[Rfam]
RNA sequence: UCGCAAGAUCAUGGCCAUAGCAGAAGCACUCGCACCGUGGACCUAUCAGAUUUCAGUAAAUCUGAAAAUUCUGCU
Numbered sequence: 001u002c003g004c005a006a007g008a009u010c011a012u013g014g015c016c017a018u019a020g021c022a023g024a025a026g027c028a029c030u031c032g033c034a035c036c037g038u039g040g041a042c043c044u045a046u047c048a049g050a051u052u053u054c055a056g057u058a059a060a061u062c063u064g065a066a067a068a069u070u071c072u073g074c075u
Base pairs, nucleotide, nucleotide: 013043014042015040016039019075020074021073022072023071024070025069026038027037047064048063049062050061051060052059053058
A member of the RNA family "Mammalian CPEB3 ribozyme" from Crocodylus porosus, 75 nucleotides long. For this family Rfam cites "A genomewide search for ribozymes reveals an HDV-like sequence in the human CPEB3 gene" (Salehi-Ashtiani et al., Science, 2006). From the family's description: The mammalian CPEB3 ribozyme is a self cleaving RNA located in the second intron of the CPEB3 gene which belongs to a family of genes regulating messenger RNA polyadenylation. A search with the family's covariance model found it, with a score of 43 bits.